[Rfam]
RNA sequence: UCAACUGAAUAUGCCAUGCCGGAGACAGCAGGUGUGAUCGCUUAAUAUCCUGCCGAGGUUGGUCUAGAGUGACGUAACUCGUUCUGUAAUUGAUGAGUACGAAGCUUAAGCCCAUUCCCCCCGGCUCUUAGUCAGGGGGUUUUUGGUGUGAACG
Numbered sequence: 001u002c003a004a005c006u007g008a009a010u011a012u013g014c015c016a017u018g019c020c021g022g023a024g025a026c027a028g029c030a031g032g033u034g035u036g037a038u039c040g041c042u043u044a045a046u047a048u049c050c051u052g053c054c055g056a057g058g059u060u061g062g063u064c065u066a067g068a069g070u071g072a073c074g075u076a077a078c079u080c081g082u083u084c085u086g087u088a089a090u091u092g093a094u095g096a097g098u099a100c101g102a103a104g105c106u107u108a109a110g111c112c113c114a115u116u117c118c119c120c121c122c123g124g125c126u127c128u129u130a131g132u133c134a135g136g137g138g139g140u141u142u143u144u145g146g147u148g149u150g151a152a153c154g
Base pairs, nucleotide, nucleotide: 028053029052030051031050032049034041035040117139118138119137120136121135123133124132125131126130
Dot-bracket structure: ...........................(((((.((....)).......)))))...............................................................(((((.((((...)))).)))))...............